[Rfam]
Nucleotides: 053
Base pairs, nucleotide, nucleotide: 005014006013027051028050029049030048031047032046033045034044035043036042
Number, partner (000 for none) and nucleotide at each position: 001000g002000u003000a004000c005014g006013u007000u008000g009000u010000u011000a012000a013006g014005c015000a016000c017000a018000g019000c020000a021000a022000u023000u024000a025000g026000a027051a028050a029049g030048g031047u032046u033045u034044g035043g036042u037000u038000u039000a040000c041000u042036g043035c044034c045033a046032a047031a048030c049029c050028u051027u052000u053000u